[Rfam]
RNA sequence: AUUGAUACAGCAGAAAUGUAAAAAGCCUUGUUUUACAAGGCUUUUAUAUAUCAUUUGAUAUGGAUUGAUACGAAAUGAUUUAGAAAUAUGGUGCGACUAGCUGGACUCGAACCAGUGACCCCCACCA
Number, nucleotide and partner (000 for none) at each position: 001a000002u000003u000004g000005a000006u000007a000008c000009a000010g000011c000012a000013g000014a000015a000016a000017u037018g036019u035020a000021a000022a000023a033024a032025g031026c000027c000028u000029u000030g000031u025032u024033u023034u000035a019036c018037a017038a000039g000040g000041c000042u000043u000044u000045u000046a000047u000048a000049u000050a000051u000052c000053a000054u000055u068056u067057g000058a000059u000060a000061u000062g000063g000064a000065u000066u000067g056068a055069u000070a000071c000072g000073a000074a000075a000076u000077g000078a000079u000080u000081u000082a000083g000084a000085a000086a000087u000088a000089u124090g123091g122092u000093g120094c000095g000096a000097c000098u117099a116100g000101c115102u114103g113104g112105a000106c000107u000108c000109g000110a000111a000112c104113c103114a102115g101116u099117g098118a000119c000120c093121c000122c091123c090124a089125c000126c000127a000
Bacterial antisense RNA HPnc0260: a 127-nucleotide RNA sequence from Glaesserella parasuis. The base pairs follow the family's consensus structure, which was predicted with CMfinder. It scores 60 bits against the family's covariance model.